RNA sequence: GAAUGAAUUGCGGGGCAAAUCUUCUUUGGCAGUGAGCAAACUCUUGCUGCUUAAUCUCAGCUAGUGCAGUAUGAGUCACCAGCUGCCAACAGAAGAAUUGCCCAGUAAUGCAUCC
Dot-bracket structure: ....(.(((.(.((((((..((((..(((((((................................................)))))))...))))..)))))).).))).)....
Numbered sequence: 001g002a003a004u005g006a007a008u009u010g011c012g013g014g015g016c017a018a019a020u021c022u023u024c025u026u027u028g029g030c031a032g033u034g035a036g037c038a039a040a041c042u043c044u045u046g047c048u049g050c051u052u053a054a055u056c057u058c059a060g061c062u063a064g065u066g067c068a069g070u071a072u073g074a075g076u077c078a079c080c081a082g083c084u085g086c087c088a089a090c091a092g093a094a095g096a097a098u099u100g101c102c103c104a105g106u107a108a109u110g111c112a113u114c115c
Stems, first nucleotide, its partner, number of pairs: 005111001007109003011105001013103006021095004027088007